[Rfam]
Shown here is a 131-nucleotide RNA sequence from Temnothorax curvispinosus, a member of the family "Small Cajal body specific RNA 8". Rfam 15.1 lists 955 matches to the family in 741 species. For this family Rfam cites "Cajal body-specific small nuclear RNAs: a novel class of 2'-O-methylation and pseudouridylation guide RNAs" (Darzacq et al., EMBO J, 2002). The match comes from Rfam's covariance-model search (64 bits). From the family's description: scaRNAs are a specific class of small nuclear RNAs which localise to the Cajal bodies and guide the modification of RNA polymerase II transcribed spliceosomal RNAs U1, U2, U4, U5 and U12. The organism belongs to Temnothorax, within Eukaryota.
RNA sequence: CAGGAGAUAGAUACGCGAGUCUCGACAAGAUGAGAUUACUCGUCACAUAAUUUCUCCAAAAAAAAUAUAUGCCUUCUGAUGACUGUAACUUGUGAAGUAUUAAUUUACAGACAGAUACGGGGCAUACAUUU
Numbered sequence: 001c002a003g004g005a006g007a008u009a010g011a012u013a014c015g016c017g018a019g020u021c022u023c024g025a026c027a028a029g030a031u032g033a034g035a036u037u038a039c040u041c042g043u044c045a046c047a048u049a050a051u052u053u054c055u056c057c058a059a060a061a062a063a064a065a066u067a068u069a070u071g072c073c074u075u076c077u078g079a080u081g082a083c084u085g086u087a088a089c090u091u092g093u094g095a096a097g098u099a100u101u102a103a104u105u106u107a108c109a110g111a112c113a114g115a116u117a118c119g120g121g122g123c124a125u126a127c128a129u130u131u
Stems, first nucleotide, its partner, number of pairs: 003057005015043004022033001069125007083110003088105001090103002